[Rfam]
RNA sequence: GAAGCGGACACCGAAAAGCUUUGAUAGAGUAGGUA
Dot-bracket structure: .((((....[[[.....))))..........]]].
A member of the RNA family "DUF805b RNA", 35 nucleotides long.
Pairs were carried over by alignment from the consensus structure, which is taken from published work.